[Rfam]
RNA: Ribosomal S15 leader
Organism: Proteus myxofaciens
RNA sequence: UUGGAUAGCUGAAUUAGAGAUUGGCUAUCUGAAAAUUUUAAAUCAUUUUGGAGUUUAUUAUGUCUCUAAGUACUGAAGCGAAAGCGAAAAUCGUUGCUGAAUUCGGUCGUGGUCCU
Numbered sequence: 001u002u003g004g005a006u007a008g009c010u011g012a013a014u015u016a017g018a019g020a021u022u023g024g025c026u027a028u029c030u031g032a033a034a035a036u037u038u039u040a041a042a043u044c045a046u047u048u049u050g051g052a053g054u055u056u057a058u059u060a061u062g063u064c065u066c067u068a069a070g071u072a073c074u075g076a077a078g079c080g081a082a083a084g085c086g087a088a089a090a091u092c093g094u095u096g097c098u099g100a101a102u103u104c105g106g107u108c109g110u111g112g113u114c115c116u
Stems, first nucleotide, its partner, number of pairs: 007026006047070007